[Rfam]
RNA: tRNA
RNA sequence: GACCUUGUGGCGCAAUGGCAGUGUGUCUGACUCCAGAUCAGAAGGCUGUGUGUUCAAAUCACACCAGGGUCA
Numbered sequence: 001g002a003c004c005u006u007g008u009g010g011c012g013c014a015a016u017g018g019c020a021g022u023g024u025g026u027c028u029g030a031c032u033c034c035a036g037a038u039c040a041g042a043a044g045g046c047u048g049u050g051u052g053u054u055c056a057a058a059u060c061a062c063a064c065c066a067g068g069g070u071c072a
Stems, first nucleotide, its partner, number of pairs: 001071007010024004026042005048064005